[Rfam]
About this RNA:
This 84-nucleotide RNA from Otolemur garnettii belongs to the Rfam family "Small nucleolar RNA SNORD82". On this family, see Galardi et al., Mol Cell Biol 2002: "Purified box C/D snoRNPs are able to reproduce site-specific 2'-O-methylation of target RNA in vitro". The family has 27 seed sequences and 649 matches in Rfam 15.1. Rfam links the family to the GO terms RNA processing and nucleolus. NCBI's taxonomy places the organism under Eukaryota, Gnathostomata, Sarcopterygii, Theria, Otolemur. The base pairs follow the family's consensus structure, which was predicted with PFOLD. The family's RNA type in Rfam is C/D-box small nucleolar RNA. It scores 51 bits against the family's covariance model. Rfam describes the family as follows. snoRNA U82 or Z25 is found in both humans and mice.

RNA sequence: UGCACACAUGAUGAGUGACAGGGACUUAAUACUGGAACCUGAUGUUACAUUGCAAGAAAAAGAAAAAGCCUUCCUGGGUGGUGC
Numbered sequence: 001u002g003c004a005c006a007c008a009u010g011a012u013g014a015g016u017g018a019c020a021g022g023g024a025c026u027u028a029a030u031a032c033u034g035g036a037a038c039c040u041g042a043u044g045u046u047a048c049a050u051u052g053c054a055a056g057a058a059a060a061a062g063a064a065a066a067a068g069c070c071u072u073c074c075u076g077g078g079u080g081g082u083g084c
Base pairs, nucleotide, nucleotide: 002084003083004082005081006079